[Rfam]
RNA: Small nucleolar RNA SNORA48
Organism: Tupaia belangeri
RNA sequence: UGUGACCUGACUGGAUAGAGUGGCAUCUGACUGGUGAUACUUAUCUCACCACCCAGUGAGUGACAAAGCAACCUCUUAUUUGUUCUAGCUUGACUGCUGGUCAGUUGGUCAGUGCCCAUGCAUAACUCAUGCCUUGGAUAUGUGG
Number, nucleotide and partner (000 for none) at each position: 001u065002g064003u063004g000005a061006c060007c000008u058009g000010a000011c056012u055013g054014g053015a000016u000017a000018g047019a046020g045021u000022g041023g040024c000025a038026u037027c036028u000029g000030a000031c000032u000033g000034g000035u000036g027037a026038u025039a000040c023041u022042u000043a000044u000045c020046u019047c018048a000049c000050c000051a000052c000053c014054c013055a012056g011057u000058g008059a000060g006061u005062g000063a003064c002065a001066a000067a000068g000069c000070a000071a000072c000073c000074u000075c000076u000077u140078a139079u138080u137081u136082g135083u000084u000085c000086u000087a000088g000089c000090u000091u000092g133093a000094c131095u000096g000097c000098u000099g000100g000101u000102c000103a000104g000105u000106u129107g128108g127109u000110c000111a000112g123113u000114g121115c120116c000117c000118a000119u000120g115121c114122a000123u112124a000125a000126c000127u108128c107129a106130u000131g094132c000133c092134u000135u082136g081137g080138a079139u078140a077141u000142g000143u000144g000145g000